[Rfam]
RNA sequence: AGAUGAAUGCACUGUAAGUCGUUCUGGAUAAGAACGUCUGCUAAAUGGCUAAAA
Numbered sequence: 001a002g003a004u005g006a007a008u009g010c011a012c013u014g015u016a017a018g019u020c021g022u023u024c025u026g027g028a029u030a031a032g033a034a035c036g037u038c039u040g041c042u043a044a045a046u047g048g049c050u051a052a053a054a
Base pairs, nucleotide, nucleotide: 013043014041015040016039020036021035022034023033024032025031
The record is a 54-nucleotide RNA from Hucho hucho, which matches "UnaL2 LINE 3' element" in Rfam. The base pairs follow the family's consensus structure, which is taken from published work. Rfam 15.1 lists 493,311 matches to the family in 99 species.